Description
The record is a 72-nucleotide sequence from Atopobium deltae, which matches "Corio-PBP RNA" in Rfam. Taxonomically the source falls in Atopobium (Bacteria, Bacillati, Actinomycetota, Coriobacteriales). It is annotated as a small RNA.

RNA sequence: ACAUGCAGAGCUUUCACGCAUUGUUUGCAAGGGGAAGAAAAAUGGGUUUUCUUCGGCUGUGUAUGCGGAAGG
Number, nucleotide and partner (000 for none) at each position: 001a000002c065003a064004u063005g062006c061007a060008g000009a058010g057011c056012u055013u000014u032015c031016a000017c000018g028019c027020a026021u000022u000023g000024u000025u000026u020027g019028c018029a000030a000031g015032g014033g000034g054035a053036a052037g051038a050039a049040a048041a047042a000043u000044g000045g000046g000047u041048u040049u039050u038051c037052u036053u035054c034055g012056g011057c010058u009059g000060u007061g006062u005063a004064u003065g002066c000067g000068g000069a000070a000071g000072g000